[Rfam]
RNA sequence: GUCAGGAAGAGGAAGAACAGAGGGCCUUAGAGUAGUGGGAAUGGGAACAUGGAGGAAAUCCUAACUUGGUUUUGAUCUCUUAUGUCAGAGGUGAUAACCUAGUUUGGUGUUUCCCGAUGCCUCCCAUUCCUAUUGUUCUAAAGCACUCCUUCCUCUUCAUUUUGUGG
Numbered sequence: 001g002u003c004a005g006g007a008a009g010a011g012g013a014a015g016a017a018c019a020g021a022g023g024g025c026c027u028u029a030g031a032g033u034a035g036u037g038g039g040a041a042u043g044g045g046a047a048c049a050u051g052g053a054g055g056a057a058a059u060c061c062u063a064a065c066u067u068g069g070u071u072u073u074g075a076u077c078u079c080u081u082a083u084g085u086c087a088g089a090g091g092u093g094a095u096a097a098c099c100u101a102g103u104u105u106g107g108u109g110u111u112u113c114c115c116g117a118u119g120c121c122u123c124c125c126a127u128u129c130c131u132a133u134u135g136u137u138c139u140a141a142a143g144c145a146c147u148c149c150u151u152c153c154u155c156u157u158c159a160u161u162u163u164g165u166g167g
Base pairs, nucleotide, nucleotide: 009158010157011156012155013154015152016151017150020148021147022146025143027141028140029139030138031137032136033135034134036132037131038130039129040128041127042126043125044124045123046122048119049118050117052115054114055113056112057111058110060109
Rfam assigns this 167-nucleotide sequence from Triticum aestivum to the family "MIR2118 microRNA precursor family". NCBI's taxonomy places the organism under Eukaryota, Euphyllophyta, commelinids, Triticodae, Triticum. Its family is annotated with RISC complex and miRNA-mediated post-transcriptional gene silencing in the Gene Ontology.